[Rfam]
RNA sequence: UCCAUCGUGAGGUGGAAUCUGAAGGAAGACAGGGGGGCAAAACUCUGGUCUGAAGAAAACGAAUCAUAUCAGGCAUAUCAUGGGGAUGAGUGUGCGUAACAACACAAAGUCCAAAAGAGUUGCGGAUAAAACUGUGAUAUGUAAAUGUGGCAGAUAUAUGGAGGGAAAGAGGUAUGAC
Numbered sequence: 001u002c003c004a005u006c007g008u009g010a011g012g013u014g015g016a017a018u019c020u021g022a023a024g025g026a027a028g029a030c031a032g033g034g035g036g037g038c039a040a041a042a043c044u045c046u047g048g049u050c051u052g053a054a055g056a057a058a059a060c061g062a063a064u065c066a067u068a069u070c071a072g073g074c075a076u077a078u079c080a081u082g083g084g085g086a087u088g089a090g091u092g093u094g095c096g097u098a099a100c101a102a103c104a105c106a107a108a109g110u111c112c113a114a115a116a117g118a119g120u121u122g123c124g125g126a127u128a129a130a131a132c133u134g135u136g137a138u139a140u141g142u143a144a145a146u147g148u149g150g151c152a153g154a155u156a157u158a159u160g161g162a163g164g165g166a167a168a169g170a171g172g173u174a175u176g177a178c
Base pairs, nucleotide, nucleotide: 001016002015003014004013005012006011028178030176031175038169043163044162045161046160047159048155049154050153051152052151064150065149066148067147068146073142074141075140077138078137079136080135081134082133083132084112085111086110087109090105091104092103093102
RNA: Group II catalytic intron D1-D4-3